[Rfam]
Rfam assigns this 89-nucleotide RNA sequence from Roseivivax sp. THAF197b to the family "Glycine riboswitch aptamer". Rfam links the family to the GO term glycine biosynthetic process. A search with the family's covariance model found it, with a score of 56 bits. The base pairs follow the family's consensus structure. The source organism's lineage runs through Bacteria, Pseudomonadati, Pseudomonadota, Alphaproteobacteria and Roseivivax.
RNA sequence: UGCGCAGCGAUGGGAGAACCGGCCGUCUGGCCGGUGCCGAAGGAGCAACCGCCCCGGAAACUCUCAGGCCUCAGGACCGUCGCGACAAG
Numbered sequence: 001u002g003c004g005c006a007g008c009g010a011u012g013g014g015a016g017a018a019c020c021g022g023c024c025g026u027c028u029g030g031c032c033g034g035u036g037c038c039g040a041a042g043g044a045g046c047a048a049c050c051g052c053c054c055c056g057g058a059a060a061c062u063c064u065c066a067g068g069c070c071u072c073a074g075g076a077c078c079g080u081c082g083c084g085a086c087a088a089g
Stems, first nucleotide, its partner, number of pairs: 007083007019034004036069003039065002043063003049057002